[Rfam]
RNA sequence: GGAAGACACUAGGGGAGCCUUUUUUGGCUGAGACGGGAAUAUCCCGGACCCUUUGAACCUGAUCUAGUUCAUACUAGCGUAGGAAAGUGGAGUCCGUGCAUG
Numbered sequence: 001g002g003a004a005g006a007c008a009c010u011a012g013g014g015g016a017g018c019c020u021u022u023u024u025u026g027g028c029u030g031a032g033a034c035g036g037g038a039a040u041a042u043c044c045c046g047g048a049c050c051c052u053u054u055g056a057a058c059c060u061g062a063u064c065u066a067g068u069u070c071a072u073a074c075u076a077g078c079g080u081a082g083g084a085a086a087g088u089g090g091a092g093u094c095c096g097u098g099c100a101u102g
Stems, first nucleotide, its partner, number of pairs: 007089004011052004017028003035045004058083004064077004
RNA: TPP riboswitch aptamer (THI element)
Organism: Neobacillus thermocopriae